[Rfam]
RNA sequence: GCCACAUGAUGACCUUGCAUAGAUUACAUUAGCACUUUGUGCAAAGAUGACCAGCUAUCUAUCACCCAUGUCUGAUGGCG
Numbered sequence: 001g002c003c004a005c006a007u008g009a010u011g012a013c014c015u016u017g018c019a020u021a022g023a024u025u026a027c028a029u030u031a032g033c034a035c036u037u038u039g040u041g042c043a044a045a046g047a048u049g050a051c052c053a054g055c056u057a058u059c060u061a062u063c064a065c066c067c068a069u070g071u072c073u074g075a076u077g078g079c080g
Stems, first nucleotide, its partner, number of pairs: 001079004032042004
RNA: Small nucleolar RNA SNORD83
Organism: Albula glossodonta